The family of this 82-nucleotide RNA sequence from Bacillus coahuilensis is "c-di-GMP-I riboswitch aptamer".
A search with the family's covariance model found it, with a score of 45 bits.
RNA sequence: AAUAUAUAAGGGCAAUCCAAUUGAUAUAUUGGUAUGCAAAGCUAUAGGGGCUUACUCAUAGAUCUGCCAGACAGCUGCAAUU
Numbered sequence: 001a002a003u004a005u006a007u008a009a010g011g012g013c014a015a016u017c018c019a020a021u022u023g024a025u026a027u028a029u030u031g032g033u034a035u036g037c038a039a040a041g042c043u044a045u046a047g048g049g050g051c052u053u054a055c056u057c058a059u060a061g062a063u064c065u066g067c068c069a070g071a072c073a074g075c076u077g078c079a080a081u082u
Stems, first nucleotide, its partner, number of pairs: 012037002017032005040076004047072001049068003056062002